This 117-nucleotide RNA sequence from Cannabis sativa belongs to the Rfam family "Plastid-psbA-1 3UTR RNA". On this family, see Richter et al., Plant Commun 2023: "Retrograde signaling in plants: A critical review focusing on the GUN pathway and beyond". By type it is a cis-regulatory element. The family is grouped with related families in Rfam's "Plastid-psbA 3UTR RNA clan". About the family: Plastid psbA-1 is a non-coding RNA (ncRNA) present in plastids.

RNA sequence: UAGAGGUUCCAUCUACAAAUAGAUAAAAUUUCGAUAUUAGUCUAUAGAAGUAGUUAUUAAAAAUAAAGCUAAAGGAGCAAUACCAAACUUCUAUCAACAAGUUUAGUAUUGCUCCUU
Number, nucleotide and partner (000 for none) at each position: 001u000002a000003g000004a000005g000006g000007u000008u023009c022010c000011a020012u019013c000014u000015a000016c000017a000018a000019a012020u011021a000022g009023a008024u000025a000026a000027a000028a000029u000030u000031u000032c000033g000034a000035u000036a000037u000038u000039a000040g000041u000042c000043u000044a000045u000046a000047g000048a000049a000050g000051u000052a000053g000054u000055u000056a000057u000058u000059a000060a000061a000062a000063a000064u000065a000066a000067a000068g000069c000070u000071a000072a117073a116074g115075g114076a113077g112078c111079a110080a109081u108082a107083c106084c000085a104086a103087a102088c101089u100090u099091c000092u000093a000094u000095c000096a000097a000098c000099a090100a089101g088102u087103u086104u085105a000106g083107u082108a081109u080110u079111g078112c077113u076114c075115c074116u073117u072